[Rfam]
RNA: mir-34 microRNA precursor family
Organism: Candidula unifasciata
RNA sequence: GCUUUCUGGCAGUGUGGUUAGCUGGUUGUAUUAGUACCGCCUCCACAACCACUAUCUGCAUUGCCGCGAAAUC
Numbered sequence: 001g002c003u004u005u006c007u008g009g010c011a012g013u014g015u016g017g018u019u020a021g022c023u024g025g026u027u028g029u030a031u032u033a034g035u036a037c038c039g040c041c042u043c044c045a046c047a048a049c050c051a052c053u054a055u056c057u058g059c060a061u062u063g064c065c066g067c068g069a070a071a072u073c
Stems, first nucleotide, its partner, number of pairs: 003071004008065002011062007019054003023051007